[Rfam]
The record is a 157-nucleotide sequence from Populus alba, which matches "MIR2912 microRNA precursor family" in Rfam.
RNA sequence: UCUAGAACUUGAGAUAUGGCCUGAACACUAAACAGUGUUUGGGUUGCAGGACAUAUUCGGACUUCUCUGUUGUUGCUAUAAUUUGGACUUGAAAACGGUCUUUUUAGAUCUUAGACUCCACAUGAAAGUUGUAGGCCUAUGUCUUACCAAAUCUUUU
Numbered sequence: 001u002c003u004a005g006a007a008c009u010u011g012a013g014a015u016a017u018g019g020c021c022u023g024a025a026c027a028c029u030a031a032a033c034a035g036u037g038u039u040u041g042g043g044u045u046g047c048a049g050g051a052c053a054u055a056u057u058c059g060g061a062c063u064u065c066u067c068u069g070u071u072g073u074u075g076c077u078a079u080a081a082u083u084u085g086g087a088c089u090u091g092a093a094a095a096c097g098g099u100c101u102u103u104u105u106a107g108a109u110c111u112u113a114g115a116c117u118c119c120a121c122a123u124g125a126a127a128g129u130u131g132u133a134g135g136c137c138u139a140u141g142u143c144u145u146a147c148c149a150a151a152u153c154u155u156u157u
Stems, first nucleotide, its partner, number of pairs: 004157004009150001011145009021134003025130001027129003035123003041119003045115001048112004055104001059100002062098002068092001072088003